[Rfam]
This 183-nucleotide RNA sequence from Priestia taiwanensis belongs to the Rfam family "Lysine riboswitch aptamer".
RNA sequence: CGGUGAGGUAGAGGUUGCGAGUAUUAAGAGUAGCGUUUGGGAGACUAUGUGGAGUCGAUGAUCAAACUGUGAAAGGAAUAAUCGCCGAAGUAAGUACAAUAACCACCUUAUUGACUUGCUGGGGCUGCAUUGAACAAGUGCAGAACUGUCACAAGCAUUUGCUUGUGGAGAGCUAUCAGAGAU
Numbered sequence: 001c002g003g004u005g006a007g008g009u010a011g012a013g014g015u016u017g018c019g020a021g022u023a024u025u026a027a028g029a030g031u032a033g034c035g036u037u038u039g040g041g042a043g044a045c046u047a048u049g050u051g052g053a054g055u056c057g058a059u060g061a062u063c064a065a066a067c068u069g070u071g072a073a074a075g076g077a078a079u080a081a082u083c084g085c086c087g088a089a090g091u092a093a094g095u096a097c098a099a100u101a102a103c104c105a106c107c108u109u110a111u112u113g114a115c116u117u118g119c120u121g122g123g124g125c126u127g128c129a130u131u132g133a134a135c136a137a138g139u140g141c142a143g144a145a146c147u148g149u150c151a152c153a154a155g156c157a158u159u160u161g162c163u164u165g166u167g168g169a170g171a172g173c174u175a176u177c178a179g180a181g182a183u
Base pairs, nucleotide, nucleotide: 007177008176009175010174011173017085018084019083020082022080023079024078025077033070034069035067036066037065038064039063040062089120090119091118092117093116094115095114097113098112099111100110101109121147122146125143126142127141128140129139130138131137149168150167151166152165153164154163155162

A search with the family's covariance model found it, with a score of 128 bits.